[Rfam]
RNA: Trypanosomatid snoRNA TB9Cs2H1
RNA sequence: GGACCACAUUGGAGUUGUGUCCUGGGCCUGCCGCGAUGCCCCUGUUGCACACUCACGUGGGCCGAGA
Numbered sequence: 001g002g003a004c005c006a007c008a009u010u011g012g013a014g015u016u017g018u019g020u021c022c023u024g025g026g027c028c029u030g031c032c033g034c035g036a037u038g039c040c041c042c043u044g045u046u047g048c049a050c051a052c053u054c055a056c057g058u059g060g061g062c063c064g065a066g067a
Base pairs, nucleotide, nucleotide: 001063002062004060005059006058007057017050018049019048020047024041025040026039027038